[Rfam]
RNA sequence: GUCGGUCUUCGGUAGUGGCCUUUCGGCAGGCGAUGUUCUACCGCCGUCGGGCUUCGAUCGAUGACCGCC
Numbered sequence: 001g002u003c004g005g006u007c008u009u010c011g012g013u014a015g016u017g018g019c020c021u022u023u024c025g026g027c028a029g030g031c032g033a034u035g036u037u038c039u040a041c042c043g044c045c046g047u048c049g050g051g052c053u054u055c056g057a058u059c060g061a062u063g064a065c066c067g068c069c
Stems, first nucleotide, its partner, number of pairs: 001069001003067005009061005017053003021049001024046004

Actino-pnp RNA: a 69-nucleotide RNA sequence from Nocardia ignorata. The source organism's lineage runs through Bacteria, Bacillati, Actinomycetes, Nocardiaceae and Nocardia.